[Rfam]
RNA sequence: GGGAGUAGAUGGUGGCUGGUGUUGCCUCUGGUCUUCAAAACCAGUUUGAGGCGUUAAGAGCGUCUUAGGUGAGUUCGAUUCUCACAUAUUCCC
Numbered sequence: 001g002g003g004a005g006u007a008g009a010u011g012g013u014g015g016c017u018g019g020u021g022u023u024g025c026c027u028c029u030g031g032u033c034u035u036c037a038a039a040a041c042c043a044g045u046u047u048g049a050g051g052c053g054u055u056a057a058g059a060g061c062g063u064c065u066u067a068g069g070u071g072a073g074u075u076c077g078a079u080u081c082u083c084a085c086a087u088a089u090u091c092c093c
Stems, first nucleotide, its partner, number of pairs: 001093007008085001011026006028044005047067005070084004
Dot-bracket structure: ((((((((..((((((....)))))).(((((.......)))))..(((((...........)))))..((((.......))))).)))))))
Annotation: Shown here is a 93-nucleotide sequence from Marinisporobacter balticus, a member of the family "Selenocysteine transfer RNA". The family has 109 seed sequences and 4,211 matches in Rfam 15.1. A search with the family's covariance model found it, with a score of 69 bits.